[Rfam]
RNA sequence: UGAUACAAGUGUCAAAAGUAUAAAAAUUCAAUACAAGCUUGCUUGCAAAAGAAUUUCUUAUCUCUUGACACACAAAAAAUAUGAGCAAUUAGCCAUUUUUGCAAAAAAUGAGCGGAUUACGAAUAUUUUUUCAAAGAUUGCGAGAGGUGAAACCGUAGCAAUCCUGUAUCA
Numbered sequence: 001u002g003a004u005a006c007a008a009g010u011g012u013c014a015a016a017a018g019u020a021u022a023a024a025a026a027u028u029c030a031a032u033a034c035a036a037g038c039u040u041g042c043u044u045g046c047a048a049a050a051g052a053a054u055u056u057c058u059u060a061u062c063u064c065u066u067g068a069c070a071c072a073c074a075a076a077a078a079a080u081a082u083g084a085g086c087a088a089u090u091a092g093c094c095a096u097u098u099u100u101g102c103a104a105a106a107a108a109u110g111a112g113c114g115g116a117u118u119a120c121g122a123a124u125a126u127u128u129u130u131u132c133a134a135a136g137a138u139u140g141c142g143a144g145a146g147g148u149g150a151a152a153c154c155g156u157a158g159c160a161a162u163c164c165u166g167u168a169u170c171a
Stems, first nucleotide, its partner, number of pairs: 001171007010070004017063002022058001024056006032048001034045004075130008085120001087118002092113002094110005136163006146154003